[Rfam]
About this RNA:
A member of the RNA family "Small nucleolar RNA snoR97" from Nicotiana sylvestris, 111 nucleotides long. The organism belongs to Nicotiana, within Eukaryota.
RNA sequence: UGCCUAUUGAAGGUAGUGAGUCUAACUGAAAACUCAUAAAAUGUGUGCAGUCCAUCACCUCCUAUCUUGAAUAUUUCACUGAGAUUGGAGUUAAAUAUCAGCACUACAUAU
Numbered sequence: 001u002g003c004c005u006a007u008u009g010a011a012g013g014u015a016g017u018g019a020g021u022c023u024a025a026c027u028g029a030a031a032a033c034u035c036a037u038a039a040a041a042u043g044u045g046u047g048c049a050g051u052c053c054a055u056c057a058c059c060u061c062c063u064a065u066c067u068u069g070a071a072u073a074u075u076u077c078a079c080u081g082a083g084a085u086u087g088g089a090g091u092u093a094a095a096u097a098u099c100a101g102c103a104c105u106a107c108a109u110a111u
Base pairs, nucleotide, nucleotide: 045104046103047102048101050099057092059090060089061088062087065084066083067082068081
Rfam classes the family as an H/ACA-box small nucleolar RNA.
The literature on the family includes a 2002 paper in Curr Biol by Marker et al., "Experimental RNomics: identification of 140 candidates for small non-messenger RNAs in the plant Arabidopsis thaliana".